[Rfam]
RNA sequence: AAGUCUGGAAAACCUCCUGGGUCGCUUUUCGCCUUUUACGACCCUGGCAGUUUUGAAGACUAGAGUCAGGGCACAUUGGGCCUGGGUGCCUCUUCUGUGGCCUCAACUCAUGUUGUGCCCCUGUG
Dot-bracket structure: ..((((.((......((.(((.((..............)).))).))...).)...))))....((..(((((((.........((.((..(....)..)).)).........)))))))..)).